[Rfam]
RNA sequence: UCUGAUUCGUCGGCCCUGACUCCCAGCCGUCCGCCCCUGGCACACCUUCCCCGGUGCCAGGUGGGAUGGAUGGGGAUCAGGGCCGACGAGUCGAAGCCC
Numbered sequence: 001u002c003u004g005a006u007u008c009g010u011c012g013g014c015c016c017u018g019a020c021u022c023c024c025a026g027c028c029g030u031c032c033g034c035c036c037c038u039g040g041c042a043c044a045c046c047u048u049c050c051c052c053g054g055u056g057c058c059a060g061g062u063g064g065g066a067u068g069g070a071u072g073g074g075g076a077u078c079a080g081g082g083c084c085g086a087c088g089a090g091u092c093g094a095a096g097c098c099c
Base pairs, nucleotide, nucleotide: 010086011085012084013083014082015081016080018078019077021075022074023073024072025071027069028068029067030066031065032064034063036061037060038059039058040057041056042055043054

Rfam assigns this 99-nucleotide sequence from Frondihabitans australicus to the family "mraW RNA". A search with the family's covariance model found it, with a score of 67 bits. The base pairs follow the family's consensus structure, which is taken from published work.